[Rfam]
RNA sequence: GCUGUGAUGGCCAAGUGGUGAAGGCAUUAGACUUGAAGUCCAAUGGGGUCACUCCCUACACAGGUUCAAGUCCUGCUCACAGUG
Numbered sequence: 001g002c003u004g005u006g007a008u009g010g011c012c013a014a015g016u017g018g019u020g021a022a023g024g025c026a027u028u029a030g031a032c033u034u035g036a037a038g039u040c041c042a043a044u045g046g047g048g049u050c051a052c053u054c055c056c057u058a059c060a061c062a063g064g065u066u067c068a069a070g071u072c073c074u075g076c077u078c079a080c081a082g083u084g
Stems, first nucleotide, its partner, number of pairs: 001083007010025003027043002030040002061075004
The record is an 84-nucleotide sequence from Oxylabes madagascariensis, which matches "tRNA" in Rfam. A search with the family's covariance model found it, with a score of 49 bits. By type it is a transfer RNA. Its family is annotated with triplet codon-amino acid adaptor activity in the Gene Ontology. The family's consensus secondary structure is taken from published work.